[Rfam]
Rfam assigns this 360-nucleotide part of an RNA from Saccharophagus degradans to the family "Bacterial large subunit ribosomal RNA".
For this family Rfam cites "The comparative RNA web (CRW) site: an online database of comparative sequence and structure information for ribosomal, intron, and other RNAs" (Cannone et al., BMC Bioinformatics, 2002).
The source organism's lineage runs through Bacteria, Pseudomonadota, Cellvibrionales, Saccharophagus and Saccharophagus degradans.

RNA sequence: UGAGAGAACUCGGGUGAAGGAACUAGGCAAAAUAGUACCGUAACUUCGGGAGAAGGUACGCCGGUUUUGGUGAUGGGACUUGCUCCCUAAGCUGAGACUGGUCGAAGUGACCAGGUGGCUGCGACUGUUUAUUAAAAACAUAGCACUCUGCAAACACGAAAGUGGACGUAUAGGGUGUGACGCCUGCCCGGUGCCGGAAGGUUAAUUGAUGGGGUUAGCUUCGGCGAAGCUCUUGAUCGAAGCCCCGGUAAACGGCGGCCGUAACUAUAACGGUCCUAAGGUAGCGAAAUUCCUUGUCGGGUAAGUUCCGACCUGCACGAAUGGCGUAACGAUGGCCACGCUGUCUCCACCCGAGACUCA
Numbered sequence: 001u002g003a004g005a006g007a008a009c010u011c012g013g014g015u016g017a018a019g020g021a022a023c024u025a026g027g028c029a030a031a032a033u034a035g036u037a038c039c040g041u042a043a044c045u046u047c048g049g050g051a052g053a054a055g056g057u058a059c060g061c062c063g064g065u066u067u068u069g070g071u072g073a074u075g076g077g078a079c080u081u082g083c084u085c086c087c088u089a090a091g092c093u094g095a096g097a098c099u100g101g102u103c104g105a106a107g108u109g110a111c112c113a114g115g116u117g118g119c120u121g122c123g124a125c126u127g128u129u130u131a132u133u134a135a136a137a138a139c140a141u142a143g144c145a146c147u148c149u150g151c152a153a154a155c156a157c158g159a160a161a162g163u164g165g166a167c168g169u170a171u172a173g174g175g176u177g178u179g180a181c182g183c184c185u186g187c188c189c190g191g192u193g194c195c196g197g198a199a200g201g202u203u204a205a206u207u208g209a210u211g212g213g214g215u216u217a218g219c220u221u222c223g224g225c226g227a228a229g230c231u232c233u234u235g236a237u238c239g240a241a242g243c244c245c246c247g248g249u250a251a252a253c254g255g256c257g258g259c260c261g262u263a264a265c266u267a268u269a270a271c272g273g274u275c276c277u278a279a280g281g282u283a284g285c286g287a288a289a290u291u292c293c294u295u296g297u298c299g300g301g302u303a304a305g306u307u308c309c310g311a312c313c314u315g316c317a318c319g320a321a322u323g324g325c326g327u328a329a330c331g332a333u334g335g336c337c338a339c340g341c342u343g344u345c346u347c348c349a350c351c352c353g354a355g356a357c358u359c360a
Stems, first nucleotide, its partner, number of pairs: 001360004009355008018346003035059005044049001060102012103107001115339007122331002126140003143178008151168001155164003181326004186256003191253002193249005200244003211233005218225002257275006276280001286313001296312006